Actino-pnp RNA: a 60-nucleotide sequence from Arthrobacter sp. Edens01. The family's RNA type in Rfam is cis-regulatory element.
RNA sequence: CGCGGUCCUCGGUAGUGGUCUCCGGGAGCAACAGCCCGUGGACCUCGAUCGAAGACCGGG
Numbered sequence: 001c002g003c004g005g006u007c008c009u010c011g012g013u014a015g016u017g018g019u020c021u022c023c024g025g026g027a028g029c030a031a032c033a034g035c036c037c038g039u040g041g042a043c044c045u046c047g048a049u050c051g052a053a054g055a056c057c058g059g060g
Stems, first nucleotide, its partner, number of pairs: 001060001003058005009052005017044005023038004